[Rfam]
RNA: Small nucleolar RNA MBII-202
RNA sequence: UGAUGACACUUUCUCCGGAAUCUCUGCAUUUUCUGUGAUGAUUUGUGGUGAACCCUUUUCCAGCUGAUGACUGUAUACUUCAGU
Numbered sequence: 001u002g003a004u005g006a007c008a009c010u011u012u013c014u015c016c017g018g019a020a021u022c023u024c025u026g027c028a029u030u031u032u033c034u035g036u037g038a039u040g041a042u043u044u045g046u047g048g049u050g051a052a053c054c055c056u057u058u059u060c061c062a063g064c065u066g067a068u069g070a071c072u073g074u075a076u077a078c079u080u081c082a083g084u
Stems, first nucleotide, its partner, number of pairs: 002084001004082003